[Rfam]
RNA sequence: GUGGGUUACGGAGACAUGAAGCCCAUCACUGUGGGUGGGAAGAUAGUGGGCUCCCUCUGCGCGAUCGCGGGCGUGUUAACCAUUGCGCUCCCGGUCCCGGUCAUAGUGUCCAAC
Numbered sequence: 001g002u003g004g005g006u007u008a009c010g011g012a013g014a015c016a017u018g019a020a021g022c023c024c025a026u027c028a029c030u031g032u033g034g035g036u037g038g039g040a041a042g043a044u045a046g047u048g049g050g051c052u053c054c055c056u057c058u059g060c061g062c063g064a065u066c067g068c069g070g071g072c073g074u075g076u077u078a079a080c081c082a083u084u085g086c087g088c089u090c091c092c093g094g095u096c097c098c099g100g101u102c103a104u105a106g107u108g109u110c111c112a113a114c
Stems, first nucleotide, its partner, number of pairs: 001114002004111002007108003011104001013102003018097001020095001037077002040074001050062002
Background:
A member of the RNA family "Potassium channel RNA editing signal" from Maylandia zebra, 114 nucleotides long. Its family is annotated with adenosine to inosine editing in the Gene Ontology. The literature on the family includes a 2004 paper in Nat Struct Mol Biol by Bhalla et al., "Control of human potassium channel inactivation by editing of a small mRNA hairpin". The family's RNA type in Rfam is cis-regulatory element. The family has 85 seed sequences and 14,095 matches in Rfam 15.1.